[Rfam]
RNA sequence: UGGUGUGGAUGAUGAGAUUAACAAUUCUACAGUUAUCCCUGGCUGAUUUUGCAGUGAUGAUAAUUUGUAAUCUGACACACAC
Dot-bracket structure: ..(((((....................................................................)))))..
RNA: Small nucleolar RNA R38